RNA sequence: ACGAUCCCGAUGGGAGAGACCCCGCCGUAGGCGGGGCGCCGAAGGGGAAACUCCUCCCGGAAGCUCUCAGGCAAAAGGACCAUCGGGGGAUG
Numbered sequence: 001a002c003g004a005u006c007c008c009g010a011u012g013g014g015a016g017a018g019a020c021c022c023c024g025c026c027g028u029a030g031g032c033g034g035g036g037c038g039c040c041g042a043a044g045g046g047g048a049a050a051c052u053c054c055u056c057c058c059g060g061a062a063g064c065u066c067u068c069a070g071g072c073a074a075a076a077g078g079a080c081c082a083u084c085g086g087g088g089g090a091u092g
Base pairs, nucleotide, nucleotide: 006087007086008085009084010083011082012081013080020036021035022034023033038072039071040070041068042067045066046065047064051059

A member of the RNA family "Glycine riboswitch aptamer" from Thiohalorhabdus denitrificans, 92 nucleotides long. The pairing is the family consensus, mapped onto this sequence. Rfam 15.1 lists 9,425 matches to the family in 5,228 species.